[Rfam]
RNA: 6C RNA
Organism: Saccharomonospora piscinae
RNA sequence: CGUCCGGUCCGACCCCCCGGGACCGGAUACCGGCGGCCCUCGCUCCUCCCCCUGGCGAGGGCCGCCACCC
Dot-bracket structure: .(((((((((.........)))))))))...(((((((((((((.........)))))))))))))....